[Rfam]
This 77-nucleotide sequence belongs to the Rfam family "ZMP/ZTP riboswitch aptamer (pfl RNA motif)". It is one of the family's seed sequences.
RNA sequence: UAGACGCUGUGCAACUGACGGAAGUGGAUGACCACAGGGAGCACAGGGAAGAAGAGCCGACCGUCUGGGCACAGCCU
Numbered sequence: 001u002a003g004a005c006g007c008u009g010u011g012c013a014a015c016u017g018a019c020g021g022a023a024g025u026g027g028a029u030g031a032c033c034a035c036a037g038g039g040a041g042c043a044c045a046g047g048g049a050a051g052a053a054g055a056g057c058c059g060a061c062c063g064u065c066u067g068g069g070c071a072c073a074g075c076c077u
Stems, first nucleotide, its partner, number of pairs: 005048001007046006015038002017065005024035004054072001056070003